[Rfam]
RNA: Plastid-psbA-4 3UTR RNA
RNA sequence: GAAAGUAAAGGAGCAAUACACAAUCUCUUGAUAUAACAAGAAAUUAAUAAUUGCUCCUUUACUA
Numbered sequence: 001g002a003a004a005g006u007a008a009a010g011g012a013g014c015a016a017u018a019c020a021c022a023a024u025c026u027c028u029u030g031a032u033a034u035a036a037c038a039a040g041a042a043a044u045u046a047a048u049a050a051u052u053g054c055u056c057c058u059u060u061a062c063u064a
Base pairs, nucleotide, nucleotide: 007060008059009058010057011056012055013054014053015052016051017050022045023044026041027040028039029038030037